Shown here is a 170-nucleotide sequence from Digitaria exilis, a member of the family "MIR2118 microRNA precursor family". The organism belongs to Digitaria, within Eukaryota.
RNA sequence: GUAGGGGAGAGGAAGAAAGAGAUGACCUAAGAGCGGUAGGAGUGGAAACAUGAAGGAACGCGUAUGCUCUAGUUUCUCCUGUAGCAUUGGAGGCAGAUAUUUGCAUUGAUGUGUUCCUGAUGCCUCCCAUUCCUAUGGUUCUUAGGCCCUCCUUCCUCUUCCUUUUCCUC
Number, nucleotide and partner (000 for none) at each position: 001g000002u000003a000004g000005g000006g000007g000008a000009g161010a160011g159012g158013a157014a000015g155016a154017a153018a000019g000020a000021g151022a150023u000024g000025a000026c146027c145028u144029a143030a142031g141032a140033g139034c138035g000036g000037u135038a134039g133040g132041a131042g130043u129044g128045g127046a000047a125048a000049c122050a121051u120052g000053a118054a000055g117056g116057a115058a114059c113060g112061c111062g000063u000064a000065u000066g000067c000068u000069c000070u000071a000072g000073u000074u000075u000076c000077u000078c000079c000080u000081g000082u000083a000084g000085c000086a000087u000088u000089g000090g000091a000092g000093g000094c000095a000096g000097a000098u000099a000100u000101u000102u000103g000104c000105a000106u000107u000108g000109a000110u000111g061112u060113g059114u058115u057116c056117c055118u053119g000120a051121u050122g049123c000124c000125u047126c000127c045128c044129a043130u042131u041132c040133c039134u038135a037136u000137g000138g034139u033140u032141c031142u030143u029144a028145g027146g026147c000148c000149c000150u022151c021152c000153u017154u016155c015156c000157u013158c012159u011160u010161c009162c000163u000164u000165u000166u000167c000168c000169u000170c000
Gene Ontology terms of the family: miRNA-mediated post-transcriptional gene silencing and RISC complex.